[Rfam]
RNA sequence: AACAGAUAUGGCGACAUGGUGCCAAAGACGAUCGCCGGUAAGAUAUUUGGCUCCAUUUGCUCCCUCAGUGGCGUGCUGGUGAUCGCCCUGCCCGUCCCCGUCAUCGUGUCCAAC
Numbered sequence: 001a002a003c004a005g006a007u008a009u010g011g012c013g014a015c016a017u018g019g020u021g022c023c024a025a026a027g028a029c030g031a032u033c034g035c036c037g038g039u040a041a042g043a044u045a046u047u048u049g050g051c052u053c054c055a056u057u058u059g060c061u062c063c064c065u066c067a068g069u070g071g072c073g074u075g076c077u078g079g080u081g082a083u084c085g086c087c088c089u090g091c092c093c094g095u096c097c098c099c100g101u102c103a104u105c106g107u108g109u110c111c112a113a114c
Base pairs, nucleotide, nucleotide: 005110007108008107009106010105011104013102014101015100018097019096021095022094037077038076039075040074049063050062
Record summary: The record is a 114-nucleotide RNA sequence from Takifugu bimaculatus, which matches "Potassium channel RNA editing signal" in Rfam. Lineage of the source: Eukaryota > Euteleostomi > Actinopteri > Neopterygii > Takifugu. A search with the family's covariance model found it, with a score of 82 bits.